The family of this 114-nucleotide RNA sequence from Anaerobium acetethylicum is "FMN riboswitch aptamer (RFN element)". It scores 121 bits against the family's covariance model.
RNA sequence: AUUAAUCUUCAGGGCAGGGUGCAAUUCCCUACCGGUGGUAAAGCCCACGAGCCGAAAGGUUGAUUUGGUGAAAUUCCAAAGCCGACAGUAAAGUCUGGAUGAAAGAAGAUAUGA
Numbered sequence: 001a002u003u004a005a006u007c008u009u010c011a012g013g014g015c016a017g018g019g020u021g022c023a024a025u026u027c028c029c030u031a032c033c034g035g036u037g038g039u040a041a042a043g044c045c046c047a048c049g050a051g052c053c054g055a056a057a058g059g060u061u062g063a064u065u066u067g068g069u070g071a072a073a074u075u076c077c078a079a080a081g082c083c084g085a086c087a088g089u090a091a092a093g094u095c096u097g098g099a100u101g102a103a104a105g106a107a108g109a110u111a112u113g114a
Base pairs, nucleotide, nucleotide: 005110006109007108008107009106010105017029018028019027031094032093033084034083035048036047037046038045043082044081051060052059053058064080065079066078067077068076086097087096088095

NCBI's taxonomy places the organism under Bacteria, Bacillota, Clostridia, Lachnospiraceae, Anaerobium. From the family's description: The RFN element is a highly conserved domain that is found frequently in the 5'-untranslated regions of prokaryotic mRNAs that encode for flavin mononucleotide (FMN) biosynthesis and transport proteins.